[Rfam]
RNA: Small Cajal body-specific RNA 2
RNA sequence: CUUCACUGGAGGGAAAGCGGCCUGGGAAUGUGAUCUGUGGUACGUAGUGUGUUGUGUAAGGUGCGUGUGGGCCGAGAGUAUGAAUGGAUGCGUGAGUGAGCGUGUAAGGCGAGCGAGUGGUUUCUCCUGGCCUUCCCCCAUCUACACCUUGAUCUUAUUUGAUCGGGUCGUGACCCUUGCCCCGCCGGGCCGCCCCGAAAUGAAAAGCUCCCCUCCUGCGAAGCCCCCUUCUUUGGGCGCUGUGCGGCGAGGCCACAUGGGCGGCGGCAGCGCCGUGGUUCUCGAGGUCCCGGAGUUGGCCCUGCGGGCGCGGUGCUCAGAAGUGAUGAAUUGAUCAGAUAGACGAGGCCGGGUUUGUCCCGUGCCGCUGAUUAUCGAGGCGAUUCUGAUCUGA
Numbered sequence: 001c002u003u004c005a006c007u008g009g010a011g012g013g014a015a016a017g018c019g020g021c022c023u024g025g026g027a028a029u030g031u032g033a034u035c036u037g038u039g040g041u042a043c044g045u046a047g048u049g050u051g052u053u054g055u056g057u058a059a060g061g062u063g064c065g066u067g068u069g070g071g072c073c074g075a076g077a078g079u080a081u082g083a084a085u086g087g088a089u090g091c092g093u094g095a096g097u098g099a100g101c102g103u104g105u106a107a108g109g110c111g112a113g114c115g116a117g118u119g120g121u122u123u124c125u126c127c128u129g130g131c132c133u134u135c136c137c138c139c140a141u142c143u144a145c146a147c148c149u150u151g152a153u154c155u156u157a158u159u160u161g162a163u164c165g166g167g168u169c170g171u172g173a174c175c176c177u178u179g180c181c182c183c184g185c186c187g188g189g190c191c192g193c194c195c196c197g198a199a200a201u202g203a204a205a206a207g208c209u210c211c212c213c214u215c216c217u218g219c220g221a222a223g224c225c226c227c228c229u230u231c232u233u234u235g236g237g238c239g240c241u242g243u244g245c246g247g248c249g250a251g252g253c254c255a256c257a258u259g260g261g262c263g264g265c266g267g268c269a270g271c272g273c274c275g276u277g278g279u280u281c282u283c284g285a286g287g288u289c290c291c292g293g294a295g296u297u298g299g300c301c302c303u304g305c306g307g308g309c310g311c312g313g314u315g316c317u318c319a320g321a322a323g324u325g326a327u328g329a330a331u332u333g334a335u336c337a338g339a340u341a342g343a344c345g346a347g348g349c350c351g352g353g354u355u356u357g358u359c360c361c362g363u364g365c366c367g368c369u370g371a372u373u374a375u376c377g378a379g380g381c382g383a384u385u386c387u388g389a390u391c392u393g394a
Stems, first nucleotide, its partner, number of pairs: 053065004086122002091117001093115002097111002158206003163198004169192002172190001175189003179185002230287004235282003239279003244276002247273003252268003256263001295314004300308003318393004328386006347366003352361002